[Rfam]
RNA sequence: GAUAGGAGUAUGACAAAUUAGAUUUUUCCUCAUGAUUUUUAGCAUUUUUAGUUGGAUUUGAAUUUUUCAUGAGGAAAAAGCUGAAAAUCAGGAGAAAAAAAUCUGAUUUGUCAUGCUUUUAUU
Numbered sequence: 001g002a003u004a005g006g007a008g009u010a011u012g013a014c015a016a017a018u019u020a021g022a023u024u025u026u027u028c029c030u031c032a033u034g035a036u037u038u039u040u041a042g043c044a045u046u047u048u049u050a051g052u053u054g055g056a057u058u059u060g061a062a063u064u065u066u067u068c069a070u071g072a073g074g075a076a077a078a079a080g081c082u083g084a085a086a087a088u089c090a091g092g093a094g095a096a097a098a099a100a101a102u103c104u105g106a107u108u109u110g111u112c113a114u115g116c117u118u119u120u121a122u123u
Stems, first nucleotide, its partner, number of pairs: 001123022023100005029094003033090007041082002045078004

Shown here is a 123-nucleotide RNA sequence from Gossypium aridum, a member of the family "MIR7504 microRNA precursor family". Gene Ontology terms of the family: RISC complex and miRNA-mediated post-transcriptional gene silencing. A search with the family's covariance model found it, with a score of 97 bits. Lineage of the source: Eukaryota > Magnoliopsida > Mesangiospermae > Malvaceae > Gossypium.